[Rfam]
RNA: Bacterial RNase P class A
Organism: Acidovorax sp. JS42
RNA sequence: GAAGCACGCCAGACCGCCGCUGGUGCAAUCUGGGAAACCAGGCACUGGAGGAACGUCCGGACUGCACAGGACAGCGUAGCAGCUAACGGCUGCCCACCGUGAGGUGAGGAUCAGAGCAACAGAGACGAGUCCCGGGGGAGUGCCUGCGAAGGCAGACCACUGGGGGUGAAACGGGCAAUCUCUACGCGCAGCAAUACCAAGUAGGCCAGCGUUGACGUGGUUCCGCGGAGCUGGCGGGUAGGUAGCACCGAGCCGUGGUGGUGACACCCGGCCCAGAUUAAUGGCGGUCACGCUGCGGGCAACCGCAGUGCACAGAAUCCGGCUUAUCGGCGCGCUUCACAC
Numbered sequence: 001g002a003a004g005c006a007c008g009c010c011a012g013a014c015c016g017c018c019g020c021u022g023g024u025g026c027a028a029u030c031u032g033g034g035a036a037a038c039c040a041g042g043c044a045c046u047g048g049a050g051g052a053a054c055g056u057c058c059g060g061a062c063u064g065c066a067c068a069g070g071a072c073a074g075c076g077u078a079g080c081a082g083c084u085a086a087c088g089g090c091u092g093c094c095c096a097c098c099g100u101g102a103g104g105u106g107a108g109g110a111u112c113a114g115a116g117c118a119a120c121a122g123a124g125a126c127g128a129g130u131c132c133c134g135g136g137g138g139a140g141u142g143c144c145u146g147c148g149a150a151g152g153c154a155g156a157c158c159a160c161u162g163g164g165g166g167u168g169a170a171a172c173g174g175g176c177a178a179u180c181u182c183u184a185c186g187c188g189c190a191g192c193a194a195u196a197c198c199a200a201g202u203a204g205g206c207c208a209g210c211g212u213u214g215a216c217g218u219g220g221u222u223c224c225g226c227g228g229a230g231c232u233g234g235c236g237g238g239u240a241g242g243u244a245g246c247a248c249c250g251a252g253c254c255g256u257g258g259u260g261g262u263g264a265c266a267c268c269c270g271g272c273c274c275a276g277a278u279u280a281a282u283g284g285c286g287g288u289c290a291c292g293c294u295g296c297g298g299g300c301a302a303c304c305g306c307a308g309u310g311c312a313c314a315g316a317a318u319c320c321g322g323c324u325u326a327u328c329g330g331c332g333c334g335c336u337u338c339a340c341a342c
Stems, first nucleotide, its partner, number of pairs: 001338005007332004011327001012289007020048007053325001055323001057322005062191004069223004074187005079093005094108001095106004109182002114180002116176002131152002133148002136145003195244004205235006216227004252272004257268004